[Rfam]
RNA sequence: ACACGAGAAGGGAGGUGGUCCAAGCUUUGUAUGCACAUAGGACUCGUGAGGUGACUGUCCGCUAGCCGGUCUCGUGGUCCUCACCCUUUGCCGGGUGGCCCUCGGGCACCGGCACCGGCGAGUACCAGGCAGACACCGGACCCCCGGGUGCCGUCGUCAGUCCCGACGGCCCAUUCCUCCCAGCCGGGAGGGGUGGAAAACCCGGGGGUCACUGCUU
Numbered sequence: 001a002c003a004c005g006a007g008a009a010g011g012g013a014g015g016u017g018g019u020c021c022a023a024g025c026u027u028u029g030u031a032u033g034c035a036c037a038u039a040g041g042a043c044u045c046g047u048g049a050g051g052u053g054a055c056u057g058u059c060c061g062c063u064a065g066c067c068g069g070u071c072u073c074g075u076g077g078u079c080c081u082c083a084c085c086c087u088u089u090g091c092c093g094g095g096u097g098g099c100c101c102u103c104g105g106g107c108a109c110c111g112g113c114a115c116c117g118g119c120g121a122g123u124a125c126c127a128g129g130c131a132g133a134c135a136c137c138g139g140a141c142c143c144c145c146g147g148g149u150g151c152c153g154u155c156g157u158c159a160g161u162c163c164c165g166a167c168g169g170c171c172c173a174u175u176c177c178u179c180c181c182a183g184c185c186g187g188g189a190g191g192g193g194u195g196g197a198a199a200a201c202c203c204g205g206g207g208g209u210c211a212c213u214g215c216u217u
Stems, first nucleotide, its partner, number of pairs: 014059006060120004065115001068113001070111001139210011151169006
Source information: Rfam assigns this 217-nucleotide RNA sequence from Parafrankia flexibilis to the family "Actinobacteria sRNA Ms_IGR-5". NCBI's taxonomy places the organism under Bacteria, Bacillati, Frankiales, Frankiaceae, Parafrankia. By type it is a small RNA.